About this RNA:
Shown here is a 68-nucleotide RNA from Betaproteobacteria bacterium MOLA814, a member of the family "SAH (S-adenosyl-L-homocysteine) riboswitch aptamer". The family has 52 seed sequences and 1,354 matches in Rfam 15.1. The source organism's lineage runs through Bacteria, Pseudomonadati, Pseudomonadota and Betaproteobacteria. A search with the family's covariance model found it, with a score of 55 bits. Gene Ontology terms of the family: regulation of gene expression and S-adenosylhomocysteine metabolic process. The family's consensus secondary structure is taken from published work.
[Rfam]
RNA sequence: AUCCGAGGAGCGCUGCAGCUUUGAUAUUUUCAAUGUGAGGCUCGGACUGUAAACGGCGCUCACCCAUG
Dot-bracket structure: .(((((............(.((((.....)))).)......)))))......................